[Rfam]
RNA sequence: ACUUACCUUAGUACAAAAGUUGACAAUAACCUAAAUACAGAGUGUCAAAGUUAAGAGGAACUUAACUUUGACCGGUCGGCUGGAGGAAGAGGAGGUGAGUUUAGUCGGUAGGCGGUUCGGCACGGUGAAGCGUGACGGACCGAAUCCGACACACCUGGGACACCCUCACAGACGGUCUUUUGAAGAUCCUCACCUCCCAAAA
Numbered sequence: 001a002c003u004u005a006c007c008u009u010a011g012u013a014c015a016a017a018a019g020u021u022g023a024c025a026a027u028a029a030c031c032u033a034a035a036u037a038c039a040g041a042g043u044g045u046c047a048a049a050g051u052u053a054a055g056a057g058g059a060a061c062u063u064a065a066c067u068u069u070g071a072c073c074g075g076u077c078g079g080c081u082g083g084a085g086g087a088a089g090a091g092g093a094g095g096u097g098a099g100u101u102u103a104g105u106c107g108g109u110a111g112g113c114g115g116u117u118c119g120g121c122a123c124g125g126u127g128a129a130g131c132g133u134g135a136c137g138g139a140c141c142g143a144a145u146c147c148g149a150c151a152c153a154c155c156u157g158g159g160a161c162a163c164c165c166u167c168a169c170a171g172a173c174g175g176u177c178u179u180u181u182g183a184a185g186a187u188c189c190u191c192a193c194c195u196c197c198c199a200a201a202a
Stems, first nucleotide, its partner, number of pairs: 004060001006058003067201004091197008104150005113142007121134003152175001155174001
RNA: R2 RNA element